RNA: Small nucleolar RNA SNORD14
RNA sequence: UGUUGAUGAUGACAAAUCCAAUGGUUUGUUUCUCAAAAACAUUCGCAGUGGCCGCCUAAGAGCUUUCGCCUUCGCCUAGGCUUGAGAGCUACUGCUGCUUCUAUCCUUCCUUGGAUGUCUGAAACC
Numbered sequence: 001u002g003u004u005g006a007u008g009a010u011g012a013c014a015a016a017u018c019c020a021a022u023g024g025u026u027u028g029u030u031u032c033u034c035a036a037a038a039a040c041a042u043u044c045g046c047a048g049u050g051g052c053c054g055c056c057u058a059a060g061a062g063c064u065u066u067c068g069c070c071u072u073c074g075c076c077u078a079g080g081c082u083u084g085a086g087a088g089c090u091a092c093u094g095c096u097g098c099u100u101c102u103a104u105c106c107u108u109c110c111u112u113g114g115a116u117g118u119c120u121g122a123a124a125c126c
Base pairs, nucleotide, nucleotide: 002125003124004123062089063088064087065086066085067084